[Rfam]
RNA: mir-19 microRNA precursor family
Organism: Cynoglossus semilaevis
RNA sequence: UUACCUGGUCAGUUUUGCUGGUUUGCUUUCAGCUUUAACUGAUCGCUGUGCAAAUCCAUGCAAAACUGAUCGCGUUG
Numbered sequence: 001u002u003a004c005c006u007g008g009u010c011a012g013u014u015u016u017g018c019u020g021g022u023u024u025g026c027u028u029u030c031a032g033c034u035u036u037a038a039c040u041g042a043u044c045g046c047u048g049u050g051c052a053a054a055u056c057c058a059u060g061c062a063a064a065a066c067u068g069a070u071c072g073c074g075u076u077g
Base pairs, nucleotide, nucleotide: 003075004074006072007071008070009069010068011067012066013065014064015063016062017061018060020057021056022054023053024052025051026050028048031047032046033045